Rfam assigns this 83-nucleotide sequence from Myotis lucifugus to the family "mir-9236 microRNA precursor family". The family has 3 seed sequences and 348 matches in Rfam 15.1. NCBI's taxonomy places the organism under Eukaryota, Gnathostomata, Euteleostomi, Amniota, Myotis.

RNA sequence: UUUACUUCUCUAGUCAUAGGACUUCCAUUCAGCCAGCUUUUAGGCGGUUCUGGAUGAUGGUUGUUCUGUGUUUUAGUUGUAAU
Numbered sequence: 001u002u003u004a005c006u007u008c009u010c011u012a013g014u015c016a017u018a019g020g021a022c023u024u025c026c027a028u029u030c031a032g033c034c035a036g037c038u039u040u041u042a043g044g045c046g047g048u049u050c051u052g053g054a055u056g057a058u059g060g061u062u063g064u065u066c067u068g069u070g071u072u073u074u075a076g077u078u079g080u081a082a083u
Stems, first nucleotide, its partner, number of pairs: 002082004010076004015070008026056007034047001036045003